Rfam assigns this 102-nucleotide RNA from Clostridium putrefaciens to the family "Purine riboswitch aptamer". Taxonomically the source falls in Clostridium (Bacteria, Bacillati, Eubacteriales, Clostridiaceae). The family's consensus secondary structure is taken from published work.
RNA sequence: AUAUAGAAUUAAAUAUUAAUCCAUAUAAUCUUAGAAAUAAGGUCUAAGAGUUUCUACUGAAAAACCGUAAAGUUUUCUUCUAUGGGUCAAUUUAAAGAUAUA
Number, nucleotide and partner (000 for none) at each position: 001a000002u000003a000004u000005a000006g000007a000008a000009u000010u000011a000012a000013a000014u000015a000016u000017u000018a000019a087020u086021c085022c084023a083024u082025a081026u000027a000028a000029u049030c048031u047032u046033a045034g044035a043036a000037a000038u000039a000040a000041g000042g000043u035044c034045u033046a032047a031048g030049a029050g000051u000052u000053u000054c000055u000056a000057c000058u000059g077060a076061a075062a074063a073064a000065c000066c000067g000068u000069a000070a000071a000072g000073u063074u062075u061076u060077c059078u000079u000080c000081u025082a024083u023084g022085g021086g020087u019088c000089a000090a000091u000092u000093u000094a000095a000096a000097g000098a000099u000100a000101u000102a000